[Rfam]
RNA sequence: CGUCAGAGCCUUGUGCCUCCUUUGGGGGUGGUGGGGUGAUGGCGUGCCUUUUGAAGAAUGA
Number, nucleotide and partner (000 for none) at each position: 001c000002g043003u042004c041005a040006g000007a000008g037009c036010c035011u034012u033013g032014u031015g000016c000017c000018u000019c000020c000021u000022u000023u000024g000025g000026g000027g000028g000029u000030g000031g014032u013033g012034g011035g010036g009037u008038g000039a000040u005041g004042g003043c002044g000045u000046g000047c060048c000049u058050u000051u000052u000053g000054a000055a000056g000057a000058a049059u000060g047061a000
RNA: Bacterial large subunit ribosomal RNA, nucleotides 617 to 677